[Rfam]
RNA sequence: CGUAUGGUGUACAGCUUCGGGUUGUAUAGCGAUACGGCCUAAAUUUAUAAGGU
Numbered sequence: 001c002g003u004a005u006g007g008u009g010u011a012c013a014g015c016u017u018c019g020g021g022u023u024g025u026a027u028a029g030c031g032a033u034a035c036g037g038c039c040u041a042a043a044u045u046u047a048u049a050a051g052g053u
Stems, first nucleotide, its partner, number of pairs: 001036005007030002011025005
Dot-bracket structure: (((((.((..(((((.....)))))...)).))))).................
Overview: The family of this 53-nucleotide RNA is "L31-Gammaproteobacteria ribosomal protein leader". It is annotated as a cis-regulatory leader. The base pairs follow the family's consensus structure, which is taken from published work. Rfam's curators put it in the seed alignment. A reference for the family is Eckert and Weinberg (2020), "Discovery of 20 novel ribosomal leader candidates in bacteria and archaea", BMC Microbiol.